The family of this 52-nucleotide RNA sequence from Solanum commersonii is "MIR1886 microRNA precursor family".
RNA sequence: UGAGAUGGAAUCAGCAUUUGGACAUGCUAUUUCAUGUUGAUUCUAUCUCAUG
Numbered sequence: 001u002g003a004g005a006u007g008g009a010a011u012c013a014g015c016a017u018u019u020g021g022a023c024a025u026g027c028u029a030u031u032u033c034a035u036g037u038u039g040a041u042u043c044u045a046u047c048u049c050a051u052g
Base pairs, nucleotide, nucleotide: 001050002049003048004047005046006045007044008043009042010041011040012039013038014037015036016035017034018029020027
The base pairs follow the family's consensus structure, which was predicted with RNAalifold. NCBI's taxonomy places the organism under Eukaryota, Streptophytina, eudicotyledons, lamiids, Solanum. It scores 65 bits against the family's covariance model.